[Rfam]
RNA: MIR319 microRNA precursor family
RNA sequence: CAGAAAUGGGAGUUCUUUCCAGCCCAAAACAGCUUCUUGAUCUCUUGAAAACUUCUGUUUUGGACUGAAGGGAGCUCCUAAUUCUU
Numbered sequence: 001c002a003g004a005a006a007u008g009g010g011a012g013u014u015c016u017u018u019c020c021a022g023c024c025c026a027a028a029a030c031a032g033c034u035u036c037u038u039g040a041u042c043u044c045u046u047g048a049a050a051a052c053u054u055c056u057g058u059u060u061u062g063g064a065c066u067g068a069a070g071g072g073a074g075c076u077c078c079u080a081a082u083u084c085u086u
Base pairs, nucleotide, nucleotide: 007080008079009078010077011076012075013074014073015072016071017070018069021066022065024063025062026061027060028059